A member of the RNA family "MIR162_1 microRNA precursor family" from Spinacia oleracea, 107 nucleotides long.
Pairs were carried over by alignment from the consensus structure, which was predicted with RNAalifold.
Rfam links the family to the GO terms miRNA-mediated post-transcriptional gene silencing and RISC complex.
The organism belongs to Spinacia, within Eukaryota.
Its Rfam clan is "MIR167 microRNA precursor clan".
[Rfam]
RNA sequence: GUUGAGAGCACUGGAGGCAGCGGUUCAUCGAUCUGUUCCUGAAUUGGGUAUUCGUUAAAUUCAUUGCAGUAAUCGAUCGAUAAACCUCUGCAUCCAGCGCUUUAUAA
Numbered sequence: 001g002u003u004g005a006g007a008g009c010a011c012u013g014g015a016g017g018c019a020g021c022g023g024u025u026c027a028u029c030g031a032u033c034u035g036u037u038c039c040u041g042a043a044u045u046g047g048g049u050a051u052u053c054g055u056u057a058a059a060u061u062c063a064u065u066g067c068a069g070u071a072a073u074c075g076a077u078c079g080a081u082a083a084a085c086c087u088c089u090g091c092a093u094c095c096a097g098c099g100c101u102u103u104a105u106a107a
Stems, first nucleotide, its partner, number of pairs: 013095003018090003022086004027081007036072002